Shown here is a 140-nucleotide RNA sequence from Solanum lycopersicum, a member of the family "Small nucleolar RNA snoR77". Rfam classes the family as an H/ACA-box small nucleolar RNA. The match comes from Rfam's covariance-model search (104 bits).
RNA sequence: AGGCAGCCCCCUUUUCUUCCUGUAAAAGGAUAUGGAAUGGGAGGUGUUAAUCUGCUCGUAAAUUAAAAUUGCUGUUGCUCUUCAGAUUUGCUGAGAUUUUAACAAUUCUCUGAAGCUGGUCUAGUAAGCUUUAGUACAUU
Numbered sequence: 001a002g003g004c005a006g007c008c009c010c011c012u013u014u015u016c017u018u019c020c021u022g023u024a025a026a027a028g029g030a031u032a033u034g035g036a037a038u039g040g041g042a043g044g045u046g047u048u049a050a051u052c053u054g055c056u057c058g059u060a061a062a063u064u065a066a067a068a069u070u071g072c073u074g075u076u077g078c079u080c081u082u083c084a085g086a087u088u089u090g091c092u093g094a095g096a097u098u099u100u101a102a103c104a105a106u107u108c109u110c111u112g113a114a115g116c117u118g119g120u121c122u123a124g125u126a127a128g129c130u131u132u133a134g135u136a137c138a139u140u
Base pairs, nucleotide, nucleotide: 002048003047004046005045007044008043009041010040011039013037014036015035016034072134073133074132077129078128079127084122085121086120087119088118090116091115092114095108096107